[Rfam]
About this RNA: A member of the RNA family "Bacterial large subunit ribosomal RNA" from uncultured bacterium 70, 451 nucleotides of a longer RNA. The family's consensus secondary structure is taken from published work.

RNA sequence: CUCCUCGAAAUGCUUUUAGGAGCAGCCUCGGGAGGUCGGCGUUGGUGGUAGAGAACUAGAUGGACUAGGGGGCUUACCAGCUUACUGAAUCCAACUAAACUGCGAAUGCCAACGACACGUAUCCCGGGAGUGAGACGGUGGGGGCUAAGCUUCAUCGUCGAAAGGGAAACAGCCCAGACUAUCGGCUAAGGUCCCAAAUUUUGUGCUAAGUGGGAAAGGAUCUGAAGACGCUCAGACAACCAGGAGGUUGGCUUAGAAGCAGCCAUCCUUUAAAGAAAGCGUAAUAGCUCACUGGUCAAGCGGCUUUGGGCCGACAAUCCAACGGGGCUCAAGCACAAAACCGAAGCCAUAGAAUAGACGCGGACCUGCGGGUCUGCAUAUUGGUAGAGGAGCGUUCUCACAGCCGUGAAGCCAGACUGAAAAGACUGGUGGAGUGGUGAGAAGUGACCCU
Numbered sequence: 001c002u003c004c005u006c007g008a009a010a011u012g013c014u015u016u017u018a019g020g021a022g023c024a025g026c027c028u029c030g031g032g033a034g035g036u037c038g039g040c041g042u043u044g045g046u047g048g049u050a051g052a053g054a055a056c057u058a059g060a061u062g063g064a065c066u067a068g069g070g071g072g073c074u075u076a077c078c079a080g081c082u083u084a085c086u087g088a089a090u091c092c093a094a095c096u097a098a099a100c101u102g103c104g105a106a107u108g109c110c111a112a113c114g115a116c117a118c119g120u121a122u123c124c125c126g127g128g129a130g131u132g133a134g135a136c137g138g139u140g141g142g143g144g145c146u147a148a149g150c151u152u153c154a155u156c157g158u159c160g161a162a163a164g165g166g167a168a169a170c171a172g173c174c175c176a177g178a179c180u181a182u183c184g185g186c187u188a189a190g191g192u193c194c195c196a197a198a199u200u201u202u203g204u205g206c207u208a209a210g211u212g213g214g215a216a217a218g219g220a221u222c223u224g225a226a227g228a229c230g231c232u233c234a235g236a237c238a239a240c241c242a243g244g245a246g247g248u249u250g251g252c253u254u255a256g257a258a259g260c261a262g263c264c265a266u267c268c269u270u271u272a273a274a275g276a277a278a279g280c281g282u283a284a285u286a287g288c289u290c291a292c293u294g295g296u297c298a299a300g301c302g303g304c305u306u307u308g309g310g311c312c313g314a315c316a317a318u319c320c321a322a323c324g325g326g327g328c329u330c331a332a333g334c335a336c337a338a339a340a341c342c343g344a345a346g347c348c349a350u351a352g353a354a355u356a357g358a359c360g361c362g363g364a365c366c367u368g369c370g371g372g373u374c375u376g377c378a379u380a381u382u383g384g385u386a387g388a389g390g391a392g393c394g395u396u397c398u399c400a401c402a403g404c405c406g407u408g409a410a411g412c413c414a415g416a417c418u419g420a421a422a423a424g425a426c427u428g429g430u431g432g433a434g435u436g437g438u439g440a441g442a443a444g445u446g447a448c449c450c451u
Stems, first nucleotide, its partner, number of pairs: 001392006011024005026130001027128007036121001038116001040114007051103001052101002057097003061093004068086002070083005134159010164175003179352004184348003190342003199339001201338006218312002222309006229302003239296005245269003250264003270274001275290001279288002353382004359376002393446001395443007403435002411430005417424002